[Rfam]
RNA sequence: CUUGGCGUCAGCGAAGCGUUCGGGGUCGUCCCCGAGCUCGCCGAGCACCCGGGCGCCGAGGACGUCACUCAGGCCUGGCAGC
Numbered sequence: 001c002u003u004g005g006c007g008u009c010a011g012c013g014a015a016g017c018g019u020u021c022g023g024g025g026u027c028g029u030c031c032c033c034g035a036g037c038u039c040g041c042c043g044a045g046c047a048c049c050c051g052g053g054c055g056c057c058g059a060g061g062a063c064g065u066c067a068c069u070c071a072g073g074c075c076u077g078g079c080a081g082c
Base pairs, nucleotide, nucleotide: 008044009043011041012040013039018038020036023033024032025031055079056078057077059076060075061074063072
Actinobacteria sRNA Ms_AS-4: an 82-nucleotide sequence from Ornithinimicrobium avium. Pairs were carried over by alignment from the consensus structure. It is annotated as a small RNA. Taxonomically the source falls in Ornithinimicrobium (Bacteria, Actinomycetota, Micrococcales, Ornithinimicrobiaceae). Rfam 15.1 lists 207 matches to the family in 131 species.